[Rfam]
RNA sequence: UACACAAAGCACAUGAUGACCAAACACUGAAACUGACUCUGUGAAGUGCAUUCAAUCCAACCCUGAGCUUUGUGUC
Numbered sequence: 001u002a003c004a005c006a007a008a009g010c011a012c013a014u015g016a017u018g019a020c021c022a023a024a025c026a027c028u029g030a031a032a033c034u035g036a037c038u039c040u041g042u043g044a045a046g047u048g049c050a051u052u053c054a055a056u057c058c059a060a061c062c063c064u065g066a067g068c069u070u071u072g073u074g075u076c
Stems, first nucleotide, its partner, number of pairs: 002075009
Rfam assigns this 76-nucleotide RNA from Pitta sordida to the family "Small nucleolar RNA SNORD69". Its family is annotated with RNA processing and nucleolus in the Gene Ontology. The base pairs follow the family's consensus structure. Rfam 15.1 lists 524 matches to the family in 496 species. Rfam's curators write: snoRNA HBII-210 belongs to the C/D family of snoRNAs. It is the human orthologue of the mouse MBII-210 and is predicted to guide the 2'O-ribose methylation of large 28S rRNA on residue G4464. On this family, see Huttenhofer et al., EMBO J 2001: "RNomics: an experimental approach that identifies 201 candidates for novel, small, non-messenger RNAs in mouse". By type it is a C/D-box small nucleolar RNA.